Background:
Rfam assigns this 81-nucleotide sequence from Brassica napus to the family "Small nucleolar RNA U61". The family has 8 seed sequences and 401 matches in Rfam 15.1. A search with the family's covariance model found it, with a score of 77 bits.
RNA sequence: AAGCUGUGAUGAAAAAAACCGUGUGCCAGAGAUUCUUUAUCGCUGACGGCUAAACACAACCCUCUAAGAAGUUCUGAGCUU
Numbered sequence: 001a002a003g004c005u006g007u008g009a010u011g012a013a014a015a016a017a018a019c020c021g022u023g024u025g026c027c028a029g030a031g032a033u034u035c036u037u038u039a040u041c042g043c044u045g046a047c048g049g050c051u052a053a054a055c056a057c058a059a060c061c062c063u064c065u066a067a068g069a070a071g072u073u074c075u076g077a078g079c080u081u
Base pairs, nucleotide, nucleotide: 001081002080003079004078
Dot-bracket structure: ((((.........................................................................))))
Record summary
Rfam classes the family as a C/D-box small nucleolar RNA.